[Rfam]
RNA sequence: AAGCCAGAUCAAUCGACUUCUCUACAUUCCUUCAAACAACCAAACUCACGACGAUCCCUCAAUCAAUCAUCAUGUCUCCCUGCACCUGCAACUGCUGCUCCGGUGACUGCAAGUCCUGCUCUUGCAACACCUGCACCGUACGUACUACGCUUCC
Dot-bracket structure: ................................................................................(((....(((.....)))....)))...(((......((....))......)))....................
RNA: A. fumigatus sRNA Afu_254
Organism: Aspergillus coremiiformis